Notes: Rfam assigns this 344-nucleotide RNA sequence from Parapontixanthobacter aurantiacus to the family "Alphaproteobacteria transfer-messenger RNA". From the family's description: Bacterial tmRNA, also known as 10Sa RNA or SsrA, is named for its dual tRNA and mRNA-like properties. Its role is to liberate the mRNA from a stalled ribosome. To accomplish this part of the tmRNA is used as a reading frame that ends in a translation stop signal. The broken mRNA is replaced in the ribosome by the tmRNA and translation of the tmRNA leads to addition of a proteolysis tag to the incomplete protein enabling recognition by a protease. Recently a number of permuted tmRNA genes have been found encoded in two parts. tmRNAs have been identified in eubacteria and some chloroplasts but are absent from archaeal and eukaryote nuclear genomes. The family's RNA type in Rfam is non-coding RNA gene.
[Rfam]
RNA sequence: UCACUUCACAUUAAGCGCACCCUCCCUAUAUAGGGAAUUGUCGGCUUUCGGGCCGACUAUGGCGAUAAACUGCGGUGUGCAAUAGACGCAACGGACCCGGGGGCAGUACCCGGCGGCUCCACCAUAAAACCCGCGAAAGCGGGACUUCUGACGGGGCCGAACUAGGAUCGACGUGUGUUGAAAAGCAUCGUUUUUGCCCGGGCUGAGUAACCCGAAUAAGGCUCAUUUUUAUAAGUGCAAACGACAACGAAGCACUCGCUAUUGCAGCGUAAUUGAUGGCCUAGCGGCCUGACAUUACAAAGCUUAAGCGCGGUUGGACCCACCGGGCAACAGAAGGGAUACCG
Numbered sequence: 001u002c003a004c005u006u007c008a009c010a011u012u013a014a015g016c017g018c019a020c021c022c023u024c025c026c027u028a029u030a031u032a033g034g035g036a037a038u039u040g041u042c043g044g045c046u047u048u049c050g051g052g053c054c055g056a057c058u059a060u061g062g063c064g065a066u067a068a069a070c071u072g073c074g075g076u077g078u079g080c081a082a083u084a085g086a087c088g089c090a091a092c093g094g095a096c097c098c099g100g101g102g103g104c105a106g107u108a109c110c111c112g113g114c115g116g117c118u119c120c121a122c123c124a125u126a127a128a129a130c131c132c133g134c135g136a137a138a139g140c141g142g143g144a145c146u147u148c149u150g151a152c153g154g155g156g157c158c159g160a161a162c163u164a165g166g167a168u169c170g171a172c173g174u175g176u177g178u179u180g181a182a183a184a185g186c187a188u189c190g191u192u193u194u195u196g197c198c199c200g201g202g203c204u205g206a207g208u209a210a211c212c213c214g215a216a217u218a219a220g221g222c223u224c225a226u227u228u229u230u231a232u233a234a235g236u237g238c239a240a241a242c243g244a245c246a247a248c249g250a251a252g253c254a255c256u257c258g259c260u261a262u263u264g265c266a267g268c269g270u271a272a273u274u275g276a277u278g279g280c281c282u283a284g285c286g287g288c289c290u291g292a293c294a295u296u297a298c299a300a301a302g303c304u305u306a307a308g309c310g311c312g313g314u315u316g317g318a319c320c321c322a323c324c325g326g327g328c329a330a331c332a333g334a335a336g337g338g339a340u341a342c343c344g
Stems, first nucleotide, its partner, number of pairs: 040057007061198005072191007087177003091174003097113005114159007199214004204225003311325004316342001318340001320338002